The family of this 222-nucleotide RNA from Nostoc commune is "HNH endonuclease-associated RNA and ORF (HEARO) RNA". The literature on the family includes a 2009 paper in Nature by Weinberg et al., "Exceptional structured noncoding RNAs revealed by bacterial metagenome analysis". It scores 109 bits against the family's covariance model. Pairs were carried over by alignment from the consensus structure, which is taken from published work.
RNA sequence: GUAAAUUACCCACCACCAAUUGCUAAGAGCAAUAUGGUGGGGGCAAUUAAUCGCCCAGAGUUUACCCGACUAAGUACUUUGAGUACUACGAUUUUCAGGUCAUCUCACCUACGAAUACGCAGCCAGUUUGUAGCUCUGAGGUUAACAGUUAAACAGGUGUAAUGGGUUAAGCCAGUGCUGUUAGCGUAAAAAGCCUUUAAAUCAUUAGAACAGUAACAGUAA
Numbered sequence: 001g002u003a004a005a006u007u008a009c010c011c012a013c014c015a016c017c018a019a020u021u022g023c024u025a026a027g028a029g030c031a032a033u034a035u036g037g038u039g040g041g042g043g044c045a046a047u048u049a050a051u052c053g054c055c056c057a058g059a060g061u062u063u064a065c066c067c068g069a070c071u072a073a074g075u076a077c078u079u080u081g082a083g084u085a086c087u088a089c090g091a092u093u094u095u096c097a098g099g100u101c102a103u104c105u106c107a108c109c110u111a112c113g114a115a116u117a118c119g120c121a122g123c124c125a126g127u128u129u130g131u132a133g134c135u136c137u138g139a140g141g142u143u144a145a146c147a148g149u150u151a152a153a154c155a156g157g158u159g160u161a162a163u164g165g166g167u168u169a170a171g172c173c174a175g176u177g178c179u180g181u182u183a184g185c186g187u188a189a190a191a192a193g194c195c196u197u198u199a200a201a202u203c204a205u206u207a208g209a210a211c212a213g214u215a216a217c218a219g220u221a222a
Stems, first nucleotide, its partner, number of pairs: 001065007010042002013040002017036001043054002046051001069214002072205001073087005090203005097196004105139002109133008122220002141185009153176002156173003160169003